[Rfam]
RNA sequence: UUGUCACAGGUGCUCUGACGAGGUUGCACUACUGUGCUCUGAGAAGCAGUGCAAUGAUAUUGUCAAAGCAUCUGGGACUAGC
Dot-bracket structure: ..((..((((((((.((((...((((((((...(.....).......))))))))......)))).))))))))..))....
Numbered sequence: 001u002u003g004u005c006a007c008a009g010g011u012g013c014u015c016u017g018a019c020g021a022g023g024u025u026g027c028a029c030u031a032c033u034g035u036g037c038u039c040u041g042a043g044a045a046g047c048a049g050u051g052c053a054a055u056g057a058u059a060u061u062g063u064c065a066a067a068g069c070a071u072c073u074g075g076g077a078c079u080a081g082c
Stems, first nucleotide, its partner, number of pairs: 003078002007074008016065004023055008034040001